[Rfam]
RNA sequence: UACAGCGGAAGAGGAGCACUGCCCAGGCAAGUGAUUUGUGAAGCCGCAACUUCAAUACAAUUCACUCAUGGGGAGCAGUGCCGAGAUGAACUAAAAUUGUCGGAUUUAGUUUGUCGGUUAAAUGGGCUGAAUCCCUUUAACUGUCACCAAGAUUUGGUGAAGAGCUUCUGAGGUC
Numbered sequence: 001u002a003c004a005g006c007g008g009a010a011g012a013g014g015a016g017c018a019c020u021g022c023c024c025a026g027g028c029a030a031g032u033g034a035u036u037u038g039u040g041a042a043g044c045c046g047c048a049a050c051u052u053c054a055a056u057a058c059a060a061u062u063c064a065c066u067c068a069u070g071g072g073g074a075g076c077a078g079u080g081c082c083g084a085g086a087u088g089a090a091c092u093a094a095a096a097u098u099g100u101c102g103g104a105u106u107u108a109g110u111u112u113g114u115c116g117g118u119u120a121a122a123u124g125g126g127c128u129g130a131a132u133c134c135c136u137u138u139a140a141c142u143g144u145c146a147c148c149a150a151g152a153u154u155u156g157g158u159g160a161a162g163a164g165c166u167u168c169u170g171a172g173g174u175c
Stems, first nucleotide, its partner, number of pairs: 006170006016081007024073001030066005036060002085115011116142004121138002124135003144160007
A member of the RNA family "Lysine riboswitch aptamer" from Vibrio maritimus, 175 nucleotides long.
It scores 91 bits against the family's covariance model.
Rfam describes the family as follows. Riboswitches are metabolite binding domains within certain messenger RNAs that serve as precision sensors for their corresponding targets.